[Rfam]
RNA sequence: CGGCUGUAGCAACAGCAACCAACGGGACGAAAACUGGUCGGAUUGCCUUGAAAUUUUCCAUCGACAUUCCGCUUACCGAACUUCCCAUAUCG
Numbered sequence: 001c002g003g004c005u006g007u008a009g010c011a012a013c014a015g016c017a018a019c020c021a022a023c024g025g026g027a028c029g030a031a032a033a034c035u036g037g038u039c040g041g042a043u044u045g046c047c048u049u050g051a052a053a054u055u056u057u058c059c060a061u062c063g064a065c066a067u068u069c070c071g072c073u074u075a076c077c078g079a080a081c082u083u084c085c086c087a088u089a090u091c092g
Base pairs, nucleotide, nucleotide: 024086025085026084027083029081036073037072038071040069041068042067043066044063045062
RNA: Small nucleolar RNA snoR109